RNA sequence: AGACUUACUUGGCAGGGAAAAUAAAGUGGUCAAAAAGGUGGUUUUCCCAGGGUAAGGUUCAUCCAUUGCACUCCAGGUGUGCUGACCUCUGUUAUUUCCUCACAUGAGAGAAAUUGCAUAAUUUAUGGUAUUGGGGGACUUUGUUAGCAUGCGCCACAU
Numbered sequence: 001a002g003a004c005u006u007a008c009u010u011g012g013c014a015g016g017g018a019a020a021a022u023a024a025a026g027u028g029g030u031c032a033a034a035a036a037g038g039u040g041g042u043u044u045u046c047c048c049a050g051g052g053u054a055a056g057g058u059u060c061a062u063c064c065a066u067u068g069c070a071c072u073c074c075a076g077g078u079g080u081g082c083u084g085a086c087c088u089c090u091g092u093u094a095u096u097u098c099c100u101c102a103c104a105u106g107a108g109a110g111a112a113a114u115u116g117c118a119u120a121a122u123u124u125a126u127g128g129u130a131u132u133g134g135g136g137g138a139c140u141u142u143g144u145u146a147g148c149a150u151g152c153g154c155c156a157c158a159u
Base pairs, nucleotide, nucleotide: 012117013116014115015114016048017047019045020044021043023042026039027038049090050089051088052087056083057082058081060079061078062077063076092112095109097107098106132158133157135155136154140151142149143148
RNA: U1 spliceosomal RNA
Organism: Peromyscus maniculatus